A member of the RNA family "Xanthomonadaceae sRNA Xoo5" from Stenotrophomonas koreensis, 125 nucleotides long. The base pairs follow the family's consensus structure, which was predicted with RNAalifold. For this family Rfam cites "Identification and functional characterization of small non-coding RNAs in Xanthomonas oryzae pathovar oryzae" (Liang et al., BMC Genomics, 2011). The organism belongs to Stenotrophomonas, within Bacteria.
RNA sequence: CGAUGAAAGCGACCGACUUCCAGCACGCCAGCAGUACCGCCCGGAUGGCCUCCGGGAUGACCUCGCGUGCCCGCCGACCGGAACCCCACAUAGUUGCUGGGUAAACCGGAGUGUUGUGCUGUCUG
Numbered sequence: 001c002g003a004u005g006a007a008a009g010c011g012a013c014c015g016a017c018u019u020c021c022a023g024c025a026c027g028c029c030a031g032c033a034g035u036a037c038c039g040c041c042c043g044g045a046u047g048g049c050c051u052c053c054g055g056g057a058u059g060a061c062c063u064c065g066c067g068u069g070c071c072c073g074c075c076g077a078c079c080g081g082a083a084c085c086c087c088a089c090a091u092a093g094u095u096g097c098u099g100g101g102u103a104a105a106c107c108g109g110a111g112u113g114u115u116g117u118g119c120u121g122u123c124u125g
Stems, first nucleotide, its partner, number of pairs: 031122006038113003041109002043079002046076004054071002057068003080107002085101004089096001